[Rfam]
RNA sequence: AACUAGUAUGAAUAACAGUUUAGCGCCCUGAUGGAUGUCUUUCAGAUUUUACCAGGACGCUAGACGUGUGUUUACAGAGAGGGGUUUUUAGUCGGUAGGCUGCUGCUUGCCAGUAGAAUCCGACACUGUCUGGGUUAAUUCCCAGUCGUCUUUCGAAGAUUUCCCCUCUCUAUAAAA
Numbered sequence: 001a002a003c004u005a006g007u008a009u010g011a012a013u014a015a016c017a018g019u020u021u022a023g024c025g026c027c028c029u030g031a032u033g034g035a036u037g038u039c040u041u042u043c044a045g046a047u048u049u050u051a052c053c054a055g056g057a058c059g060c061u062a063g064a065c066g067u068g069u070g071u072u073u074a075c076a077g078a079g080a081g082g083g084g085u086u087u088u089u090a091g092u093c094g095g096u097a098g099g100c101u102g103c104u105g106c107u108u109g110c111c112a113g114u115a116g117a118a119u120c121c122g123a124c125a126c127u128g129u130c131u132g133g134g135u136u137a138a139u140u141c142c143c144a145g146u147c148g149u150c151u152u153u154c155g156a157a158g159a160u161u162u163c164c165c166c167u168c169u170c171u172a173u174a175a176a177a
Stems, first nucleotide, its partner, number of pairs: 024059002027056003067174003078171005083165002091124005100116006126148001130145004
The family of this 177-nucleotide RNA sequence from Phaedon cochleariae is "R2 RNA element". Rfam 15.1 lists 3,698 matches to the family in 74 species. Its family is annotated with regulation of reverse transcription in the Gene Ontology. It is annotated as a cis-regulatory element. This family represents the 3' UTR region of the R2 retrotransposable element.